[Rfam]
RNA sequence: GAAUUUCACUAGGGGAGCCUUUGGCUGAGAUUGAACAGUAUGUUCUAAACCCUUUGAACCUGAACUGGAUUAUACCAGCGGAGGGAAGAUGAAUGGAUAUUUGU
Numbered sequence: 001g002a003a004u005u006u007c008a009c010u011a012g013g014g015g016a017g018c019c020u021u022u023g024g025c026u027g028a029g030a031u032u033g034a035a036c037a038g039u040a041u042g043u044u045c046u047a048a049a050c051c052c053u054u055u056g057a058a059c060c061u062g063a064a065c066u067g068g069a070u071u072a073u074a075c076c077a078g079c080g081g082a083g084g085g086a087a088g089a090u091g092a093a094u095g096g097a098u099a100u101u102u103g104u
Stems, first nucleotide, its partner, number of pairs: 006092003010088001011053004017025003033045004059084003065078004
The family of this 104-nucleotide sequence from Heyndrickxia ginsengihumi is "TPP riboswitch aptamer (THI element)". It scores 72 bits against the family's covariance model. The family's consensus secondary structure is taken from published work.